Overview:
The record is a 171-nucleotide RNA from Triticum aestivum, which matches "MIR2118 microRNA precursor family" in Rfam. For this family Rfam cites "Characterization and expression profiles of miRNAs in rice seeds" (Xue et al., Nucleic Acids Res, 2009). Pairs were carried over by alignment from the consensus structure, which was predicted with RNAalifold. The organism belongs to Triticum, within Eukaryota.
RNA sequence: GUCGAGAAGAGGAAGAAAAGAGAGCCUGAGAGCGGUGGGAAUGGGAACAUGGAGGAAAUCCUAACUUUAUUUGUUUUCGCCUCUAGUGUUGGAGGUGAGAAUUUAGUUUCAUAUUUCCCGAUGCCUCAUAUUCCUGUUGUUAUCAAGCACUCCUUCCUUUUCUUUUUGGCU
Numbered sequence: 001g002u003c004g005a006g007a008a009g010a011g012g013a014a015g016a017a018a019a020g021a022g023a024g025c026c027u028g029a030g031a032g033c034g035g036u037g038g039g040a041a042u043g044g045g046a047a048c049a050u051g052g053a054g055g056a057a058a059u060c061c062u063a064a065c066u067u068u069a070u071u072u073g074u075u076u077u078c079g080c081c082u083c084u085a086g087u088g089u090u091g092g093a094g095g096u097g098a099g100a101a102u103u104u105a106g107u108u109u110c111a112u113a114u115u116u117c118c119c120g121a122u123g124c125c126u127c128a129u130a131u132u133c134c135u136g137u138u139g140u141u142a143u144c145a146a147g148c149a150c151u152c153c154u155u156c157c158u159u160u161u162c163u164u165u166u167u168g169g170c171u
Stems, first nucleotide, its partner, number of pairs: 009162005015156003020152003025147001027145003031141004036136008045127002048123003052119001054118006